[Rfam]
RNA sequence: ACCGUCCUUGUCUUGGGGUGAUACGGGAAACUCAAUGAGCGUCUAGCGAGAGUUCCCUGCUGACACCAUGACAACACUUUCGCACCACCUGAACUUUAAGUUUGGGACAUGGUGCAAUUUUUGGAAAA
Numbered sequence: 001a002c003c004g005u006c007c008u009u010g011u012c013u014u015g016g017g018g019u020g021a022u023a024c025g026g027g028a029a030a031c032u033c034a035a036u037g038a039g040c041g042u043c044u045a046g047c048g049a050g051a052g053u054u055c056c057c058u059g060c061u062g063a064c065a066c067c068a069u070g071a072c073a074a075c076a077c078u079u080u081c082g083c084a085c086c087a088c089c090u091g092a093a094c095u096u097u098a099a100g101u102u103u104g105g106g107a108c109a110u111g112g113u114g115c116a117a118u119u120u121u122u123g124g125a126a127a128a
Stems, first nucleotide, its partner, number of pairs: 006018004020060001023058001026056003030053004039047002082115006088106006

A member of the RNA family "U4atac minor spliceosomal RNA" from Oryzias javanicus, 128 nucleotides long.
On this family, see Lorkovic et al., RNA 2005: "Evolutionary conservation of minor U12-type spliceosome between plants and humans".
Its family is annotated with pre-mRNA 5'-splice site binding, mRNA 5'-splice site recognition and U4atac snRNP in the Gene Ontology.
It is annotated as a spliceosomal small nuclear RNA.
U4atac is an essential component of the minor U12-type spliceosome complex which is required for removal of the rarer class of eukaryotic introns (AT-AC, U12-type).
The base pairs follow the family's consensus structure, which is taken from published work.